[Rfam]
RNA sequence: UGGCAACUAUGAUGAAAGAUUGGUCUGUAUGUAAUAUAUUACUAAAUGAAGAUAACAGUCCCUCUAAACUGAUGUUGCCA
Numbered sequence: 001u002g003g004c005a006a007c008u009a010u011g012a013u014g015a016a017a018g019a020u021u022g023g024u025c026u027g028u029a030u031g032u033a034a035u036a037u038a039u040u041a042c043u044a045a046a047u048g049a050a051g052a053u054a055a056c057a058g059u060c061c062c063u064c065u066a067a068a069c070u071g072a073u074g075u076u077g078c079c080a
Stems, first nucleotide, its partner, number of pairs: 001080007
RNA: Small nucleolar RNA SNORD127